[Rfam]
This 78-nucleotide sequence from Escherichia coli belongs to the Rfam family "Nucleoid-associated noncoding RNA 4 (CssrE)". Rfam classes the family as a small RNA. A search with the family's covariance model found it, with a score of 82 bits. About the family: In E. coli small RNA transcribed from repeated extragenic palindromic element (REP325) called nucleoid-associated ncRNA 4 (nRNA4) collaborates HU protein in condensing the DNA. The secondary structure but not the sequence of the RNA is important in nucleoid condensation. Also identified in Shigella as CssrE. Rfam 15.1 lists 870 matches to the family in 32 species.

Nucleotides: 078
Base pairs, nucleotide, nucleotide: 002031003030004029005028006027007026008025011022012021013020014019046077047076048075049074050073051072052071053070055068056067057066058065059064
Number, partner (000 for none) and nucleotide at each position: 001000g002031g003030c004029c005028g006027g007026a008025u009000a010000a011022g012021g013020c014019g015000u016000u017000u018000a019014c020013g021012c022011c023000g024000c025008g026007u027006c028005c029004g030003g031002c032000a033000a034000u035000c036000g037000g038000c039000a040000c041000a042000c043000c044000a045000u046077g047076c048075c049074u050073g051072a052071u053070g054000c055068g056067a057066u058065g059064c060000u061000g062000g063000c064059g065058c066057a067056u068055c069000u070053u071052a072051u073050c074049a075048g076047g077046c078000c